[Rfam]
RNA sequence: CAAUGGGGCUUCUGUUGUGAGUGAGACAUGUAGGGCAGCUCAAAUGUCCAUUUGCAGAAUUGACAUCAAGAGAUUUAGGAAGCAUAAUUUUUUGGUACUUGGACAGCUGGUGAUCAUUGGUCAUCCCCCCCCCCC
Numbered sequence: 001c002a003a004u005g006g007g008g009c010u011u012c013u014g015u016u017g018u019g020a021g022u023g024a025g026a027c028a029u030g031u032a033g034g035g036c037a038g039c040u041c042a043a044a045u046g047u048c049c050a051u052u053u054g055c056a057g058a059a060u061u062g063a064c065a066u067c068a069a070g071a072g073a074u075u076u077a078g079g080a081a082g083c084a085u086a087a088u089u090u091u092u093u094g095g096u097a098c099u100u101g102g103a104c105a106g107c108u109g110g111u112g113a114u115c116a117u118u119g120g121u122c123a124u125c126c127c128c129c130c131c132c133c134c135c
Stems, first nucleotide, its partner, number of pairs: 008083005013026001015024003027054002030051002033049005055078001057076005101133002106129001109126002112122004
Shown here is a 135-nucleotide sequence from Galemys pyrenaicus, a member of the family "U11 spliceosomal RNA". The family's consensus secondary structure is taken from published work.